[Rfam]
The record is a 74-nucleotide RNA sequence from Callosobruchus maculatus, which matches "mir-11 microRNA precursor family" in Rfam. It scores 50 bits against the family's covariance model. Pairs were carried over by alignment from the consensus structure, which was predicted with RNAalifold. Clan: mir-6 clan. For this family Rfam cites "Next-generation small RNA sequencing for microRNAs profiling in the honey bee Apis mellifera" (Chen et al., Insect Mol Biol, 2010).
RNA sequence: GCUGCAUUCCGGGACUCUUCCUGUGAUUUGUGCUGUGUUCCCGUCACAUCACAGGCAGAGUUCUAGCUAUGCGG
Numbered sequence: 001g002c003u004g005c006a007u008u009c010c011g012g013g014a015c016u017c018u019u020c021c022u023g024u025g026a027u028u029u030g031u032g033c034u035g036u037g038u039u040c041c042c043g044u045c046a047c048a049u050c051a052c053a054g055g056c057a058g059a060g061u062u063c064u065a066g067c068u069a070u071g072c073g074g
Base pairs, nucleotide, nucleotide: 009066011064012063013062014061015060016059017058021054022053023052024051025050026049030047031046032045